The record is a 113-nucleotide sequence from Fluviicoccus keumensis, which matches "Guanidine-I riboswitch aptamer" in Rfam. The base pairs follow the family's consensus structure. NCBI's taxonomy places the organism under Bacteria, Gammaproteobacteria, Moraxellales, Moraxellaceae, Fluviicoccus.
[Rfam]
RNA sequence: AAACGGGGCGGCUAGGGUUCCGGCGGCGGGGCGACCCGGCGCGACUGGUCCGAGAGCCGCCCGACCGGCCGGAUUCACCGGACGGUGCACGGAGGGAUAAAAGCCCGGGAGAU
Numbered sequence: 001a002a003a004c005g006g007g008g009c010g011g012c013u014a015g016g017g018u019u020c021c022g023g024c025g026g027c028g029g030g031g032c033g034a035c036c037c038g039g040c041g042c043g044a045c046u047g048g049u050c051c052g053a054g055a056g057c058c059g060c061c062c063g064a065c066c067g068g069c070c071g072g073a074u075u076c077a078c079c080g081g082a083c084g085g086u087g088c089a090c091g092g093a094g095g096g097a098u099a100a101a102a103g104c105c106c107g108g109g110a111g112a113u
Stems, first nucleotide, its partner, number of pairs: 007061006015051002020048002022045001023042003027038002064086004069081003088108001090111001094106003